[Rfam]
Nucleotides: 061
Base pairs, nucleotide, nucleotide: 001059002058003057004056005055006054007053010050012048013047016044017043019041020040021039022038
Number, partner (000 for none) and nucleotide at each position: 001059u002058c003057u004056u005055c006054a007053u008000u009000u010050c011000u012048c013047a014000c015000a016044c017043u018000c019041u020040c021039u022038c023000g024000g025000c026000g027000g028000u029000c030000a031000g032000a033000g034000c035000g036000a037000c038022g039021a040020g041019a042000g043017a044016g045000c046000a047013u048012g049000g050010g051000g052000a053007a054006u055005g056004a057003a058002g059001a060000g061000a